[Rfam]
Rfam assigns this 82-nucleotide RNA from Liparis tanakae to the family "mir-181 microRNA precursor family". The match comes from Rfam's covariance-model search (70 bits). Gene Ontology terms of the family: miRNA-mediated post-transcriptional gene silencing and RISC complex. The base pairs follow the family's consensus structure, which was predicted with PFOLD. A reference for the family is Ambros (2001), "microRNAs: tiny regulators with great potential", Cell. Taxonomically the source falls in Liparis (Eukaryota, Euteleostomi, Actinopterygii, Ctenosquamata). The family has 157 seed sequences and 3,490 matches in Rfam 15.1.
Nucleotides: 082
Base pairs, nucleotide, nucleotide: 001082002081004078005077007075008074014068015067017065018064019063020062021061022060025059026058027057028056029055030054031053033052034051035050036049
Number, partner (000 for none) and nucleotide at each position: 001082u002081g003000c004078c005077c006000a007075c008074a009000g010000a011000g012000a013000a014068c015067a016000u017065u018064c019063a020062a021061c022060g023000c024000u025059g026058u027057c028056g029055g030054u031053g032000a033052g034051u035050u036049u037000g038000c039000g040000c041000u042000c043000u044000a045000a046000c047000c048000a049036a050035a051034a052033c053031c054030a055029u056028c057027g058026g059025c060022c061021g062020u063019u064018g065017a066000c067015u068014g069000u070000a071000c072000c073000c074008u075007g076000a077005g078004g079000g080000a081002c082001g